Shown here is an 87-nucleotide sequence from Callipepla squamata, a member of the family "Retrovirus direct repeat 1 (dr1)". The family's RNA type in Rfam is cis-regulatory element. The match comes from Rfam's covariance-model search (54 bits). For this family Rfam cites "Point mutations in the avian sarcoma/leukosis virus 3' untranslated region result in a packaging defect" (Aschoff et al., J Virol, 1999). From the family's description: This family represents the direct repeat 1 (dr1) element commonly found in the 3' UTR of Avian sarcoma, Rous sarcoma and Avian leukosis viruses (Alpharetroviruses and Avian type C retroviruses). dr1 is required for efficient viral replication and is thought to be involved in genomic RNA packaging although this may not be its only role. Pairs were carried over by alignment from the consensus structure, which is taken from published work. The organism belongs to Callipepla, within Eukaryota.
RNA sequence: GGUCACGCAGGCUUAACCGAGAGGACAAUGGCAUGUAUAGGCGUAAUGCAGGGAUUUUGGGGUGUCCGCGGUUAGAGUCCUCUCAGG
Dot-bracket structure: ..................((((((((...........(((.((....(((............)))...)).)))..))))))))...